[Rfam]
RNA sequence: GGGGAGAGUCUUAGAAUCCCCACGGGCGUCGUGUAAAUAGUGACUGUCUUUGGCCGGAUGGCACGGUUUGGGAAUC
Numbered sequence: 001g002g003g004g005a006g007a008g009u010c011u012u013a014g015a016a017u018c019c020c021c022a023c024g025g026g027c028g029u030c031g032u033g034u035a036a037a038u039a040g041u042g043a044c045u046g047u048c049u050u051u052g053g054c055c056g057g058a059u060g061g062c063a064c065g066g067u068u069u070g071g072g073a074a075u076c
Base pairs, nucleotide, nucleotide: 001021002020003019004018005017034070035069036068037067038066040064041063042062044061045060046059047058048057049056
Dot-bracket structure: (((((...........)))))............(((((.(((.((((((......))))))))).)))))......

This 76-nucleotide sequence from Xylanibacter brevis belongs to the Rfam family "L13-Bacteroidia ribosomal protein leader". Rfam's curators put it in the seed alignment. It is annotated as a cis-regulatory leader.